[Rfam]
RNA sequence: ACUGACAGGAUGUCAGUGGUUCCACACAACAGCGAUGUUUUUGCACAACAAAAACUCGCCGUCAACAAAUGUACACGGAUGUACAUUUGUUGACGAUG
Numbered sequence: 001a002c003u004g005a006c007a008g009g010a011u012g013u014c015a016g017u018g019g020u021u022c023c024a025c026a027c028a029a030c031a032g033c034g035a036u037g038u039u040u041u042u043g044c045a046c047a048a049c050a051a052a053a054a055c056u057c058g059c060c061g062u063c064a065a066c067a068a069a070u071g072u073a074c075a076c077g078g079a080u081g082u083a084c085a086u087u088u089g090u091u092g093a094c095g096a097u098g
Stems, first nucleotide, its partner, number of pairs: 001017006033058003037055007061094014